[Rfam]
FGF-2 internal ribosome entry site (IRES): a 472-nucleotide RNA from Phocoena sinus.
Rfam describes the family as follows. This family represents the fibroblast growth factor 2 (FGF-2) internal ribosome entry site (IRES). When expressed the FGF-2 protein plays a pivotal role in cell proliferation, differentiation and survival as well as being involved in wound-healing. It has been found that FGF-2 IRES activity is strictly controlled and highly tissue specific. It is thought that translational IRES dependent activation of FGF-2 plays a vital role in embryogenesis and in the adult brain.
The source organism's lineage runs through Eukaryota, Theria, Laurasiatheria, Odontoceti and Phocoena.
Pairs were carried over by alignment from the consensus structure, which was predicted with PFOLD.
On this family, see Creancier et al., J Cell Biol 2000: "Fibroblast growth factor 2 internal ribosome entry site (IRES) activity ex vivo and in transgenic mice reveals a stringent tissue-specific regulation".

RNA sequence: UUAGGGUCUUCCUUACAAGCACUUAUUUCACACAAGUGAUGUGAGCAGUACUCCAGUUGACAAAGAAAAAGAAAGAAAAGGUAGGAAAGGGAAGGGAAGGAAAAGAAAAAGGAGGCCAGACCAGCGGAGGCCAGACCAGCGGACGCUGUGCCGGCGGUUGCAAAAGGAUCCCUAGCGCUGCAGCUUCGGGAGGCGGCCCUCCCGAGAGCGGCGGCCGAGGAGACACCCAGCCCUCACUCCCAGCUCCCGGGCCGCUCGGCUCCCCGCGCUCUAGGGCCGACGGAGAGGGAAGCGGCGGAACAGUUUGAGGCUGGGGGCCCGCGGGCGCGGCCUCGUGCCGCGGGGAGGGAGGCUGGGGGGCCGGGGCCGGGGCCGCGCCCCGGAGCGCGUCCGAGGCCGGGGCCGGGGCGCGGCGACUCCCCGUGCGGCUCCAGGGGCUCGGGGACCCCGGCAGGGCGCUGGCGGGGCCAUG
Number, nucleotide and partner (000 for none) at each position: 001u000002u000003a000004g000005g000006g000007u000008c363009u000010u000011c360012c359013u358014u357015a000016c000017a000018a000019g000020c000021a000022c348023u347024u346025a000026u000027u000028u000029c000030a000031c000032a000033c000034a000035a000036g000037u342038g341039a000040u000041g338042u337043g336044a000045g334046c000047a000048g000049u000050a000051c000052u000053c000054c000055a000056g000057u000058u000059g000060a000061c243062a000063a000064a000065g239066a238067a000068a000069a234070a000071g232072a000073a000074a000075g000076a000077a000078a000079a000080g000081g000082u229083a000084g227085g226086a000087a000088a000089g000090g000091g000092a000093a000094g000095g000096g000097a000098a000099g000100g000101a000102a000103a000104a000105g000106a000107a000108a000109a000110a000111g000112g000113a000114g000115g000116c000117c000118a000119g000120a000121c167122c166123a000124g155125c154126g000127g152128a000129g000130g149131c148132c000133a000134g000135a000136c000137c000138a000139g000140c000141g000142g000143a000144c000145g000146c000147u000148g131149u130150g000151c000152c127153g000154g125155c124156g000157g000158u000159u000160g000161c000162a000163a000164a000165a000166g122167g121168a000169u000170c000171c000172c217173u000174a000175g000176c213177g212178c211179u210180g209181c208182a000183g000184c000185u000186u000187c000188g203189g202190g201191a200192g199193g198194c000195g000196g000197c000198c193199c192200u191201c190202c189203c188204g000205a000206g000207a000208g181209c180210g179211g178212c177213g176214g000215c000216c000217g172218a000219g000220g000221a000222g000223a000224c000225a000226c085227c084228c000229a082230g000231c000232c071233c000234u069235c000236a000237c000238u066239c065240c000241c000242a000243g061244c000245u000246c000247c000248c307249g306250g305251g304252c303253c000254g281255c000256u280257c279258g278259g277260c276261u000262c000263c000264c000265c000266g000267c000268g000269c000270u000271c000272u000273a000274g000275g000276g260277c259278c258279g257280a256281c254282g000283g000284a000285g000286a000287g000288g000289g000290a000291a000292g000293c000294g000295g000296c000297g000298g000299a000300a000301c000302a000303g252304u251305u250306u249307g248308a000309g000310g000311c000312u000313g000314g000315g000316g000317g000318c000319c000320c000321g000322c000323g000324g000325g000326c000327g000328c000329g000330g000331c000332c000333u000334c045335g000336u043337g042338c041339c000340g000341c038342g037343g000344g000345g000346a024347g023348g022349g000350a000351g000352g000353c000354u000355g000356g000357g014358g013359g012360g011361c000362c000363g008364g000365g000366g000367c000368c000369g000370g000371g000372g000373c000374c000375g000376c000377g000378c000379c389380c000381c387382g386383g000384a000385g000386c382387g381388c000389g379390u000391c000392c000393g000394a000395g000396g000397c000398c000399g460400g459401g000402g457403c456404c455405g000406g452407g000408g000409c000410g000411c000412g000413g000414c000415g000416a000417c000418u000419c000420c000421c000422c000423g440424u000425g438426c437427g000428g000429c000430u000431c000432c000433a000434g000435g000436g000437g426438c425439u000440c423441g449442g448443g447444g000445a000446c000447c443448c442449c441450g000451g000452c406453a000454g000455g404456g403457c402458g000459c400460u399461g000462g000463c000464g000465g000466g000467g000468c000469c000470a000471u000472g000